[Rfam]
RNA sequence: GGUCAGCAAAGGCAAAACCGGCGUGAGUCGGUGACGCAAAGCCUCCGGUCUUCGCCGCUACAGCGGGAGAAGAUGGCGGGGUUGCAGAA
Numbered sequence: 001g002g003u004c005a006g007c008a009a010a011g012g013c014a015a016a017a018c019c020g021g022c023g024u025g026a027g028u029c030g031g032u033g034a035c036g037c038a039a040a041g042c043c044u045c046c047g048g049u050c051u052u053c054g055c056c057g058c059u060a061c062a063g064c065g066g067g068a069g070a071a072g073a074u075g076g077c078g079g080g081g082u083u084g085c086a087g088a089a
Stems, first nucleotide, its partner, number of pairs: 012037002017032006040083004045079003048074003055066004